[Rfam]
RNA sequence: AUGCCACCAAUCAAGCCAACCAGCUUCCUUUAUUCACAGGGACCUGGUGUGCACAGCAGCCUCCUUGGUAGUUUAUGCAGCCUGUUGCUUGUGUGGGUUGCCCUAAGGGACCUUGGAGACAGGU
Numbered sequence: 001a002u003g004c005c006a007c008c009a010a011u012c013a014a015g016c017c018a019a020c021c022a023g024c025u026u027c028c029u030u031u032a033u034u035c036a037c038a039g040g041g042a043c044c045u046g047g048u049g050u051g052c053a054c055a056g057c058a059g060c061c062u063c064c065u066u067g068g069u070a071g072u073u074u075a076u077g078c079a080g081c082c083u084g085u086u087g088c089u090u091g092u093g094u095g096g097g098u099u100g101c102c103c104u105a106a107g108g109g110a111c112c113u114u115g116g117a118g119a120c121a122g123g124u
Stems, first nucleotide, its partner, number of pairs: 002053003019048004025042004067112003078100006
Dot-bracket structure: .(((..............((((..((((..........))))..))))..))).............(((........((((((...........)))))).........)))............

Rfam assigns this 124-nucleotide RNA sequence from Castor canadensis to the family "Small nucleolar RNA SNORA70". The family's consensus secondary structure was predicted with PFOLD. Lineage of the source: Eukaryota > Metazoa > Deuterostomia > Chordata > Castor. snoRNA U70 seems to be exclusive to mammals and is a member of the H/ACA class of snoRNA which contain H (ANANNA) and ACA box motifs. H/ACA box snoRNAs are involved in the conversion of uridines to pseudouridines (5-ribosyluracil) a constituent of structural RNAs (transfer, ribosomal, small nuclear, and small nucleolar). Its family is annotated with nucleolus and RNA processing in the Gene Ontology. The literature on the family includes a 2000 paper in IUBMB Life by Charette and Gray, "Pseudouridine in RNA: what, where, how, and why".